RNA: FMN riboswitch aptamer (RFN element)
RNA sequence: AAACAUCUUCAGGGCAAGGUGAAAUUCCUGACCGGCGGUGAUGGCGCAUUUGCGUCCAAGCCCGCGACUCGCAAAUCAUGUAGCAUUUGCGACUGAUCUGGUGCAAUUCCAGAGCCGACGGUAAAGUCCGGAUGGGAGAAGAUGAGA
Number, nucleotide and partner (000 for none) at each position: 001a000002a000003a000004c144005a143006u142007c141008u140009u139010c138011a000012g000013g000014g000015c000016a000017a029018g028019g027020u000021g000022a000023a000024a000025u000026u000027c019028c018029u017030g000031a127032c126033c117034g116035g065036c064037g063038g062039u000040g000041a000042u000043g000044g000045c000046g000047c000048a000049u000050u000051u000052g000053c000054g000055u000056c000057c000058a000059a000060g115061c114062c038063c037064g036065c035066g000067a000068c000069u092070c091071g090072c089073a000074a000075a000076u000077c000078a000079u000080g000081u000082a000083g000084c000085a000086u000087u000088u000089g072090c071091g070092a069093c000094u000095g000096a000097u113098c112099u111100g110101g109102u000103g000104c000105a000106a000107u000108u000109c101110c100111a099112g098113a097114g061115c060116c034117g033118a000119c130120g129121g128122u000123a000124a000125a000126g032127u031128c121129c120130g119131g000132a000133u000134g000135g000136g000137a000138g010139a009140a008141g007142a006143u005144g004145a000146g000147a000